[Rfam]
RNA sequence: UGGAAGAAAGGAACCAUGCGAUCUUACAACAAUAAAAGUGUGUAAGCUCGUCAUUGUUUCCUUUCUUCUC
Numbered sequence: 001u002g003g004a005a006g007a008a009a010g011g012a013a014c015c016a017u018g019c020g021a022u023c024u025u026a027c028a029a030c031a032a033u034a035a036a037a038g039u040g041u042g043u044a045a046g047c048u049c050g051u052c053a054u055u056g057u058u059u060c061c062u063u064u065c066u067u068c069u070c
Base pairs, nucleotide, nucleotide: 002069003068004067005066006065007064008063009062010061011060012059013058015056016055018051019050020049021048023046024045025044026043027042028041

The family of this 70-nucleotide RNA from Caenorhabditis brenneri is "mir-787 microRNA precursor family". Rfam 15.1 lists 4 matches to the family in 4 species. Rfam links the family to the GO terms RISC complex and miRNA-mediated post-transcriptional gene silencing. A reference for the family is Kato et al. (2009), "Dynamic expression of small non-coding RNAs, including novel microRNAs and piRNAs/21U-RNAs, during Caenorhabditis elegans development", Genome Biol.